[Rfam]
The record is a 97-nucleotide RNA from Erwinia sorbitola, which matches "Bacterial small signal recognition particle RNA" in Rfam.
Clan: SRP clan.
Pairs were carried over by alignment from the consensus structure, which is taken from published work.
The signal recognition particle (SRP) is a universally conserved ribonucleoprotein involved in the co-translational targeting of proteins to membranes.

RNA sequence: GGUUGGUUCUCCCGCAAUGCUAAUUUGUGAACUCGGUCAGAUCCGGAAGGAAGCAGCCGUAACAGAUGACGCGUGUGCCGGGAUGUAGCUGGCAGGG
Numbered sequence: 001g002g003u004u005g006g007u008u009c010u011c012c013c014g015c016a017a018u019g020c021u022a023a024u025u026u027g028u029g030a031a032c033u034c035g036g037u038c039a040g041a042u043c044c045g046g047a048a049g050g051a052a053g054c055a056g057c058c059g060u061a062a063c064a065g066a067u068g069a070c071g072c073g074u075g076u077g078c079c080g081g082g083a084u085g086u087a088g089c090u091g092g093c094a095g096g097g
Stems, first nucleotide, its partner, number of pairs: 004091005010083005015075001017074004023067006034059004042051003